Nucleotides: 136
Base pairs, nucleotide, nucleotide: 001057002056003055004054005053007051009049014045015044016043017042019040020039021038023037067132068131069130070129071128072127073126084119085118086117087116088115090112091111092110093109
Number, partner (000 for none) and nucleotide at each position: 001057c002056c003055c004054u005053g006000c007051a008000u009049u010000a011000a012000a013000a014045a015044g016043u017042g018000a019040u020039u021038g022000u023037g024000c025000a026000a027000u028000g029000c030000u031000u032000a033000u034000g035000c036000u037023c038021u039020g040019g041000g042017c043016a044015u045014u046000g047000a048000u049009a050000c051007u052000a053005u054004g055003g056002g057001g058000a059000g060000a061000g062000a063000a064000u065000g066000c067132c068131a069130a070129a071128a072127g073126c074000c075000u076000c077000u078000c079000c080000c081000u082000g083000u084119g085118u086117u087116u088115g089000g090112a091111a092110g093109g094000u095000c096000c097000a098000g099000u100000c101000c102000u103000g104000c105000c106000u107000g108000u109093c110092c111091u112090u113000g114000c115088u116087a117086a118085a119084u120000c121000c122000u123000g124000g125000u126073g127072c128071u129070u130069u131068u132067g133000a134000a135000c136000a
Shown here is a 136-nucleotide RNA sequence from Neotoma lepida, a member of the family "Small nucleolar RNA SNORA71". The members of this family belong to the H/ACA class of snoRNAs which bind a number of proteins (including dyskerin, Gar1p and Nop10p) to form snoRNP complexes. This class of snoRNAs are thought to guide the sites of modification of uridines to pseudouridines by forming direct base pairing interactions with substrate RNAs. This family includes U71 (SNORA71), ACA39 (SNORA39) and ACA60 (SNORA60). Its family is annotated with nucleolus and RNA processing in the Gene Ontology. NCBI's taxonomy places the organism under Eukaryota, Chordata, Craniata, Muroidea, Neotoma. The family's consensus secondary structure was predicted with PFOLD. A reference for the family is Ganot et al. (1997), "The family of box ACA small nucleolar RNAs is defined by an evolutionarily conserved secondary structure and ubiquitous sequence elements essential for RNA accumulation", Genes Dev.